[Rfam]
RNA sequence: CCGGGGCCAAGCAACCUCCCGGUCAGGCGAGUGCCGCCCAAGCGUUGC
Numbered sequence: 001c002c003g004g005g006g007c008c009a010a011g012c013a014a015c016c017u018c019c020c021g022g023u024c025a026g027g028c029g030a031g032u033g034c035c036g037c038c039c040a041a042g043c044g045u046u047g048c
Stems, first nucleotide, its partner, number of pairs: 001022006011048005026038004
chrB-b RNA: a 48-nucleotide RNA from Altererythrobacter sp. B11. By type it is a cis-regulatory element. It scores 45 bits against the family's covariance model. Lineage of the source: Bacteria > Pseudomonadati > Pseudomonadota > Sphingomonadales > Altererythrobacter.